[Rfam]
RNA sequence: UUCUUAUCCAGAGAGGUGGAGGGAUAGGCCCUGUGAAACCUCGGCAACAGAUUCGUAAUGAAAACUGUGCCAAUUCCUACAGGAGUACCUGAGAGAUAAGAA
Numbered sequence: 001u002u003c004u005u006a007u008c009c010a011g012a013g014a015g016g017u018g019g020a021g022g023g024a025u026a027g028g029c030c031c032u033g034u035g036a037a038a039c040c041u042c043g044g045c046a047a048c049a050g051a052u053u054c055g056u057a058a059u060g061a062a063a064a065c066u067g068u069g070c071c072a073a074u075u076c077c078u079a080c081a082g083g084a085g086u087a088c089c090u091g092a093g094a095g096a097u098a099a100g101a102a
Stems, first nucleotide, its partner, number of pairs: 001102008013042005021031003025079004043071004048067002052061002075094001080091004